Rfam assigns this 74-nucleotide RNA from Esox lucius to the family "mir-205 microRNA precursor family". Taxonomically the source falls in Esox (Eukaryota, Craniata, Vertebrata, Euteleostomi). A search with the family's covariance model found it, with a score of 56 bits. The family's consensus secondary structure was predicted with RNAalifold. Its family is annotated with RISC complex and miRNA-mediated post-transcriptional gene silencing in the Gene Ontology.
RNA sequence: UUGCACUGUCCUUCAUUCCACCGGAUCCUGUUUGCCAUUUUGCAGAUUCCCAGUGGGAUGAAGCCCAGCGGGGC
Numbered sequence: 001u002u003g004c005a006c007u008g009u010c011c012u013u014c015a016u017u018c019c020a021c022c023g024g025a026u027c028c029u030g031u032u033u034g035c036c037a038u039u040u041u042g043c044a045g046a047u048u049c050c051c052a053g054u055g056g057g058a059u060g061a062a063g064c065c066c067a068g069c070g071g072g073g074c
Stems, first nucleotide, its partner, number of pairs: 011063006019055003023050003028045003